[Rfam]
RNA sequence: GUAGGCUAUGGUGACAUUUACCCGAAGACAUUAUUGGGGAAGAUCGUGGGAGGCCUCUGCUGUAUUGCCGGGGUCCUGGUUAUUGCCCUUCCCAUCCCAAUCAUCGUGAACAAU
Numbered sequence: 001g002u003a004g005g006c007u008a009u010g011g012u013g014a015c016a017u018u019u020a021c022c023c024g025a026a027g028a029c030a031u032u033a034u035u036g037g038g039g040a041a042g043a044u045c046g047u048g049g050g051a052g053g054c055c056u057c058u059g060c061u062g063u064a065u066u067g068c069c070g071g072g073g074u075c076c077u078g079g080u081u082a083u084u085g086c087c088c089u090u091c092c093c094a095u096c097c098c099a100a101u102c103a104u105c106g107u108g109a110a111c112a113a114u
Stems, first nucleotide, its partner, number of pairs: 001114002004111001007108005013102002020095001037077004049063001051061001
The record is a 114-nucleotide RNA sequence from Puma concolor, which matches "Potassium channel RNA editing signal" in Rfam. The base pairs follow the family's consensus structure, which is taken from published work. The match comes from Rfam's covariance-model search (81 bits). The literature on the family includes a 2004 paper in Nat Struct Mol Biol by Bhalla et al., "Control of human potassium channel inactivation by editing of a small mRNA hairpin". The source organism's lineage runs through Eukaryota, Bilateria, Chordata, Amniota and Puma.